[Rfam]
RNA sequence: CCGCCCGGCACCGUCGAUCAAACCGUGGCGUAGGGCGAAUAACCGCAUCGCGGUUAUCCGCCGGUUCGGCAGGGCUGCGGCCCUUGCCCGGAUUUUGGGCAGCGUGCACCAGCAGGCGACAAAUCGGCAUCAAUCGCUGGCGGAAAAGCCCGCUCCGUCA
Numbered sequence: 001c002c003g004c005c006c007g008g009c010a011c012c013g014u015c016g017a018u019c020a021a022a023c024c025g026u027g028g029c030g031u032a033g034g035g036c037g038a039a040u041a042a043c044c045g046c047a048u049c050g051c052g053g054u055u056a057u058c059c060g061c062c063g064g065u066u067c068g069g070c071a072g073g074g075c076u077g078c079g080g081c082c083c084u085u086g087c088c089c090g091g092a093u094u095u096u097g098g099g100c101a102g103c104g105u106g107c108a109c110c111a112g113c114a115g116g117c118g119a120c121a122a123a124u125c126g127g128c129a130u131c132a133a134u135c136g137c138u139g140g141c142g143g144a145a146a147a148g149c150c151c152g153c154u155c156c157g158u159c160a
Base pairs, nucleotide, nucleotide: 002030003029004028005027006025007024008023033151034150035149036148040056041055042054043053044052045051046050057144058143059142060141061140062139063138064137065136069128070127071084072083073082074081075080085101086100087099088098089097090096102117103116105114106113107112

The record is a 160-nucleotide RNA from Pseudomonas aeruginosa, which matches "Pseudomonas sRNA P33" in Rfam. The family's consensus secondary structure was predicted with WAR. By type it is a small RNA.